[Rfam]
RNA sequence: GCGUCAGCUUUAGCUCACUGGUUACUUCACAGCAUCAACUUAAUUAUAAGUUCCAGCCUGUCUCACCGUGGGCGCUGCCUGGCGUUUUU
Numbered sequence: 001g002c003g004u005c006a007g008c009u010u011u012a013g014c015u016c017a018c019u020g021g022u023u024a025c026u027u028c029a030c031a032g033c034a035u036c037a038a039c040u041u042a043a044u045u046a047u048a049a050g051u052u053c054c055a056g057c058c059u060g061u062c063u064c065a066c067c068g069u070g071g072g073c074g075c076u077g078c079c080u081g082g083c084g085u086u087u088u089u
Stems, first nucleotide, its partner, number of pairs: 002084006013073004019068003027065001029063001
Shown here is an 89-nucleotide RNA from Scyliorhinus torazame, a member of the family "Vault RNA".
From the family's description: This family of RNAs are found as part of the enigmatic vault ribonucleoprotein complex. The complex consists of a major vault protein (MVP), two minor vault proteins (VPARP and TEP1), and several small untranslated RNA molecules. It has been suggested that the vault complex is involved in drug resistance.
By type it is a non-coding RNA gene.
It scores 48 bits against the family's covariance model.
The organism belongs to Scyliorhinus, within Eukaryota.